The record is a 363-nucleotide RNA from Atopobacter sp. AH10, which matches "Bacterial RNase P class B" in Rfam. Rfam links the family to the GO terms dimeric ribonuclease P complex, ribonuclease P activity and tRNA processing. For this family Rfam cites "Ribonuclease P: unity and diversity in a tRNA processing ribozyme" (Frank and Pace, Annu Rev Biochem, 1998). The family's RNA type in Rfam is ribozyme. Lineage of the source: Bacteria > Bacillati > Bacillota > Bacilli > Atopobacter. It scores 313 bits against the family's covariance model.
[Rfam]
RNA sequence: GAUUUCGGGUAAUUGCGCUUAUUAAGUUAAGUGAGGAAAGUCCAUGCUCGCACUAGCUGAGAUGCUAGUAGUGAUCGUGCUUAGCGAAACAAUAAGCUAAGGCAAUACAUAUUGACGGCGGACAAACAGGCUAAGGGAAACUAUGCCUCAGUAAUCCUGAAAAGUGCCACAGUGACGAAGUGCCAGGGAAACCUCGGCAGUGGAACGCGGUAAACCCCUCGAGCGAGCAACCCAAACAUUAUUGGUAGGGGCACUCUUCUAACGGAAUUGAACGUGUGGAGGAGCCGGGAAACCGGAGACAGAUAAUUACCCCUAGUAGAGAAGUUCCUGCAGCUCUAUUAGGACAGAACAUGGCUUACAGAA
Numbered sequence: 001g002a003u004u005u006c007g008g009g010u011a012a013u014u015g016c017g018c019u020u021a022u023u024a025a026g027u028u029a030a031g032u033g034a035g036g037a038a039a040g041u042c043c044a045u046g047c048u049c050g051c052a053c054u055a056g057c058u059g060a061g062a063u064g065c066u067a068g069u070a071g072u073g074a075u076c077g078u079g080c081u082u083a084g085c086g087a088a089a090c091a092a093u094a095a096g097c098u099a100a101g102g103c104a105a106u107a108c109a110u111a112u113u114g115a116c117g118g119c120g121g122a123c124a125a126a127c128a129g130g131c132u133a134a135g136g137g138a139a140a141c142u143a144u145g146c147c148u149c150a151g152u153a154a155u156c157c158u159g160a161a162a163a164g165u166g167c168c169a170c171a172g173u174g175a176c177g178a179a180g181u182g183c184c185a186g187g188g189a190a191a192c193c194u195c196g197g198c199a200g201u202g203g204a205a206c207g208c209g210g211u212a213a214a215c216c217c218c219u220c221g222a223g224c225g226a227g228c229a230a231c232c233c234a235a236a237c238a239u240u241a242u243u244g245g246u247a248g249g250g251g252c253a254c255u256c257u258u259c260u261a262a263c264g265g266a267a268u269u270g271a272a273c274g275u276g277u278g279g280a281g282g283a284g285c286c287g288g289g290a291a292a293c294c295g296g297a298g299a300c301a302g303a304u305a306a307u308u309a310c311c312c313c314u315a316g317u318a319g320a321g322a323a324g325u326u327c328c329u330g331c332a333g334c335u336c337u338a339u340u341a342g343g344a345c346a347g348a349a350c351a352u353g354g355c356u357u358a359c360a361g362a363a
Stems, first nucleotide, its partner, number of pairs: 004363003007359001008311007016033006038357003042354005047227005052069006075222003079218001080101006102116001103114004117217002120157003128148004135142002164215002166211003181199004185194003231250003254284007285296004313342009